[Rfam]
Nucleotides: 044
Base pairs, nucleotide, nucleotide: 003044004043005042007039008038009037010036015033016032017031018030019029
Number, partner (000 for none) and nucleotide at each position: 001000c002000c003044g004043g005042c006000u007039c008038c009037g010036g011000u012000u013000c014000a015033c016032c017031c018030c019029c020000a021000c022000g023000a024000c025000c026000g027000a028000a029019g030018g031017g032016g033015g034000a035000u036010c037009c038008g039007g040000c041000g042005g043004c044003c